[Rfam]
Nucleotides: 363
Stems, first nucleotide, its partner, number of pairs: 001359007019332006026325001028324001031323001033321009044307005049068005055081006112142004117137007143181006149172008159193006197224005204217002209239005243282005249276003253270001255268001257299003336352005
Number, partner (000 for none) and nucleotide at each position: 001359g002358g003357g004356g005355g006354c007353g008000a009000c010000a011000g012000g013000c014000u015000u016000c017000g018000a019332c020331g021330u022329g023328g024327u025000c026325g027000a028324c029000u030000c031323g032000u033321g034320c035319g036318a037317a038316c039315g040314g041313u042000u043000g044307c045306a046305g047304g048303u049068c050067g051066a052065g053064g054000u055081u056080g057079c058078c059077g060076g061000a062000g063000g064053c065052c066051u067050c068049g069000u070000a071000a072000a073000a074000c075000a076060c077059c078058g079057g080056c081055a082000a083000a084000a085000a086000c087000c088000a089000u090000a091000a092000u093000u094000g095000c096000g097000g098000a099000c100000c101000a102000c103000g104000a105000g106000u107000u108000c109000g110000c111000c112142c113141u114140c115139g116000c117137c118136g119135c120134u121133u122132a123131g124000u125000u126000a127000g128000u129000a130000g131123c132122u133121a134120a135119g136118c137117g138000a139115u140114g141113a142112g143181c144180g145179u146178c147177g148176g149172u150171c151170c152169a153168c154167c155166c156165u157000c158000g159193g160192c161191c162190c163189g164188u165156g166155g167154g168153g169152u170151g171150g172149g173000g174000u175000g176148c177147c178146g179145g180144c181143g182000u183000c184000a185000a186000c187000a188164a189163c190162g191161g192160g193159c194000u195000c196000g197224c198223c199222c200221g201220g202000a203000a204217g205216g206000u207000u208000c209239g210238c211237c212236u213235c214000c215000g216205c217204c218000g219000a220201c221200c222199g223198g224197g225000g226000a227000c228000u229000c230000u231000u232000u233000c234000g235213g236212a237211g238210g239209u240000u241000g242000u243282g244281c245280u246279c247278c248000a249276c250275g251274g252000u253270c254000a255268g256000u257299g258298c259297c260000c261000g262000c263000c264000g265000g266000c267000g268255c269000g270253g271000a272000c273000c274251c275250c276249g277000c278247g279246g280245a281244g282243c283000g284000a285000g286000a287000u288000u289000c290000a291000a292000g293000c294000g295000c296000c297259g298258g299257c300000u301000a302000u303048a304047c305046c306045u307044g308000u309000a310000g311000a312000c313041g314040c315039u316038g317037u318036u319035c320034g321033u322000u323031c324028g325026u326000c327024a328023c329022c330021g331020c332019g333000g334000a335000u336352a337351g338350g339349g340348g341000u342000u343000c344000a345000a346000c347000u348340c349339c350338c351337c352336u353007c354006g355005c356004c357003u358002c359001c360000a361000u362000c363000a
Rfam assigns this 363-nucleotide RNA from a Solirubrobacterales bacterium to the family "transfer-messenger RNA". The source organism's lineage runs through Bacteria, Bacillati, Actinomycetota, Thermoleophilia and Solirubrobacterales. Rfam describes the family as follows. Bacterial tmRNA, also known as 10Sa RNA or SsrA, is named for its dual tRNA and mRNA-like properties. Its role is to liberate the mRNA from a stalled ribosome. To accomplish this part of the tmRNA is used as a reading frame that ends in a translation stop signal.